[Rfam]
RNA sequence: AGAGUCGAUCGGACAGUCGCUGUUUCGUUACUUUGGUAACGAGAGGGAGGAAAGUCCGGGCUCCAUAGGGCAAAGUGCCAGGUAACCCCUGGGAGGCGCGAGCCUACGGAAAGUGCCACAGAAAAUACCGCCUAAGCACGCAAGUGCCGGUAAGGGUGAAAAGGUGCGGUAAGAGCGCACCGCACGGCUGGUAACAGUCCGUGGCUAGGUAAACCCCACUUGGAGCAAGACCAAAUAGGAGUCCAUUGGCGUGGCCCGCGCUGGACUCGGGUAGGUUGCUUGAGGUCGCUAGUGAUGGCGAUCCUAGAGGAAUGACUGUUCACGACAAAACCCGGCUUAUAGAUCGACUCUCUCU
Number, nucleotide and partner (000 for none) at each position: 001a351002g350003a349004g348005u347006c346007g345008a344009u343010c342011g340012g320013a319014c318015a317016g316017u315018c314019g000020c047021u046022g000023u044024u043025u042026c041027g040028u039029u038030a037031c000032u000033u000034u000035g000036g000037u030038a029039a028040c027041g026042a025043g024044a023045g000046g021047g020048a000049g000050g000051a000052a338053a337054g336055u000056c335057c334058g333059g332060g331061c225062u224063c223064c222065a000066u000067a000068g257069g256070g255071c254072a000073a221074a220075g219076u218077g217078c092079c091080a090081g089082g088083u000084a000085a000086c000087c000088c082089c081090u080091g079092g078093g107094a105095g104096g103097c102098g000099c000100g000101a000102g097103c096104c095105u094106a000107c093108g216109g215110a000111a000112a000113g214114u213115g210116c209117c208118a000119c000120a000121g000122a000123a000124a000125a000126u000127a000128c155129c154130g151131c150132c149133u000134a000135a000136g147137c146138a145139c144140g000141c000142a000143a000144g139145u138146g137147c136148c000149g132150g131151u130152a000153a000154g129155g128156g000157u000158g000159a000160a000161a000162a000163g181164g180165u179166g178167c177168g176169g000170u000171a000172a000173g000174a000175g000176c168177g167178c166179a165180c164181c163182g205183c203184a202185c201186g200187g199188c197189u196190g195191g000192u000193a000194a000195c190196a189197g188198u000199c187200c186201g185202u184203g183204g000205c182206u000207a000208g117209g116210u115211a000212a000213a114214c113215c109216c108217c077218a076219c075220u074221u073222g064223g063224a062225g061226c000227a000228a000229g277230a276231c275232c274233a000234a000235a000236u000237a000238g000239g268240a267241g266242u265243c264244c263245a000246u000247u000248g262249g261250c260251g259252u258253g000254g071255c070256c069257c068258g252259c251260g250261c249262u248263g244264g243265a242266c241267u240268c239269g000270g000271g000272u000273a000274g232275g231276u230277u229278g000279c000280u000281u000282g000283a000284g303285g302286u301287c300288g299289c298290u297291a296292g000293u000294g000295a000296u291297g290298g289299c288300g287301a286302u285303c284304c000305u000306a000307g000308a000309g000310g000311a000312a000313u000314g018315a017316c016317u015318g014319u013320u012321c000322a000323c000324g000325a000326c000327a000328a000329a000330a000331c060332c059333c058334g057335g056336c054337u053338u052339a000340u011341a000342g010343a009344u008345c007346g006347a005348c004349u003350c002351u001352c000353u000354c000355u000
A member of the RNA family "Bacterial RNase P class A" from Pseudomonas sp. C27(2019), 355 nucleotides long. Its family is annotated with ribonuclease P activity, dimeric ribonuclease P complex and tRNA processing in the Gene Ontology. From the family's description: Ribonuclease P (RNase P) is a ubiquitous endoribonuclease, found in archaea, bacteria and eukarya as well as chloroplasts and mitochondria. It is annotated as a ribozyme. Lineage of the source: Bacteria > Pseudomonadota > Pseudomonadales > Pseudomonadaceae > Pseudomonas.